[Rfam]
Nucleotides: 190
Base pairs, nucleotide, nucleotide: 007026008025009024011022012021013020014019047066049064050063051062052061069083070082071081072080112144113143114142115141119137124135125134126133127132147183148182149181150180151179154175155174156173157172158171
Number, partner (000 for none) and nucleotide at each position: 001000a002000u003000u004000g005000c006000u007026u008025c009024u010000c011022g012021g013020c014019c015000u016000u017000u018000u019014g020013g021012c022011u023000a024009a025008g026007a027000u028000c029000a030000a031000g032000u033000a034000u035000a036000g037000u038000a039000u040000u041000u042000g043000u044000c045000c046000u047066u048000a049064u050063c051062a052061g053000u054000u055000u056000a057000a058000u059000a060000u061052c062051u063050g064049a065000c066047a067000c068000a069083u070082c071081c072080u073000c074000c075000a076000u077000c078000a079000u080072a081071g082070g083069a084000c085000a086000a087000u088000a089000u090000a091000c092000u093000a094000a095000a096000u097000g098000g099000a100000u101000u102000u103000u104000u105000g106000g107000a108000a109000c110000a111000g112144g113143g114142a115141g116000a117000u118000g119137g120000a121000a122000u123000a124135g125134g126133a127132g128000c129000u130000u131000g132127c133126u134125c135124u136000g137119u138000a139000c140000a141115c142114u143113c144112c145000a146000u147183g148182c149181a150180u151179c152000a153000a154175c155174c156173u157172g158171g159000u160000g161000u162000c163000a164000u165000g166000u167000a168000c169000u170000u171158c172157u173156a174155g175154g176000a177000a178000a179151g180150g181149u182148g183147c184000a185000c186000c187000c188000c189000c190000u
U2 spliceosomal RNA: a 190-nucleotide RNA from Neomonachus schauinslandi. Lineage of the source: Eukaryota > Sarcopterygii > Amniota > Laurasiatheria > Neomonachus. It is annotated as a spliceosomal small nuclear RNA. Rfam links the family to the GO terms mRNA branch site recognition, pre-mRNA branch point binding and U2 snRNP. Rfam's curators write: U2 is a small nuclear RNA (snRNA) component of the spliceosome (involved in pre-mRNA splicing). The family's consensus secondary structure is taken from published work.